[Rfam]
RNA sequence: UUAUGAGCUUUUAGGUGAGCUCUCAAGUGAGAGCUCACCUCUGGAGUAACUCACCUGGGAGCUCACCUGGUGAGCUCAUU
Numbered sequence: 001u002u003a004u005g006a007g008c009u010u011u012u013a014g015g016u017g018a019g020c021u022c023u024c025a026a027g028u029g030a031g032a033g034c035u036c037a038c039c040u041c042u043g044g045a046g047u048a049a050c051u052c053a054c055c056u057g058g059g060a061g062c063u064c065a066c067c068u069g070g071u072g073a074g075c076u077c078a079u080u
Base pairs, nucleotide, nucleotide: 013068014067015066017064018063019062020061022059023058024057025056027054028053029052030051031050033047034046035045036044
The record is an 80-nucleotide sequence from Taxus chinensis, which matches "lin-4 microRNA precursor family" in Rfam. Rfam links the family to the GO terms RISC complex and miRNA-mediated post-transcriptional gene silencing. Lineage of the source: Eukaryota > Viridiplantae > Streptophyta > Acrogymnospermae > Taxus.